[Rfam]
RNA: Metazoan signal recognition particle RNA
RNA sequence: GCUGGGAGAGUGGCGUCUCCUGUAAUCCGGCUACUCGGAGGCUAGUUACAGUGGAGGAUCUGAGAUCGGGGCACCCCUGUUGCUACGGGAUCUACGUUGACUAGGCGUCCGCACUAAGCUCGCUAUCAAUAUGGAUGCCCUGGAGGAGUCCAGGGUGUCCAGGUUAGCUAAGGAGAGGCGAACCGGGCCAGAGGGGAAAACCCCAGCAGCCAAAAGUCUCCGUGGCGUACAGUAGUGGGAUCGCGUCCGGGAGUGGGACCGUGUCGGCAGCCUGUUCAAUAUCAUUCGACCUGUAACUUU
Numbered sequence: 001g002c003u004g005g006g007a008g009a010g011u012g013g014c015g016u017c018u019c020c021u022g023u024a025a026u027c028c029g030g031c032u033a034c035u036c037g038g039a040g041g042c043u044a045g046u047u048a049c050a051g052u053g054g055a056g057g058a059u060c061u062g063a064g065a066u067c068g069g070g071g072c073a074c075c076c077c078u079g080u081u082g083c084u085a086c087g088g089g090a091u092c093u094a095c096g097u098u099g100a101c102u103a104g105g106c107g108u109c110c111g112c113a114c115u116a117a118g119c120u121c122g123c124u125a126u127c128a129a130u131a132u133g134g135a136u137g138c139c140c141u142g143g144a145g146g147a148g149u150c151c152a153g154g155g156u157g158u159c160c161a162g163g164u165u166a167g168c169u170a171a172g173g174a175g176a177g178g179c180g181a182a183c184c185g186g187g188c189c190a191g192a193g194g195g196g197a198a199a200a201c202c203c204c205a206g207c208a209g210c211c212a213a214a215a216g217u218c219u220c221c222g223u224g225g226c227g228u229a230c231a232g233u234a235g236u237g238g239g240a241u242c243g244c245g246u247c248c249g250g251g252a253g254u255g256g257g258a259c260c261g262u263g264u265c266g267g268c269a270g271c272c273u274g275u276u277c278a279a280u281a282u283c284a285u286u287c288g289a290c291c292u293g294u295a296a297c298u299u300u
Stems, first nucleotide, its partner, number of pairs: 001042003004021006026039003044298008056287004064277002067274004077270006084263005091257005097251001101250002104247005109239002112237005118230001121227006128165003132161013168172001175220005186211003193204003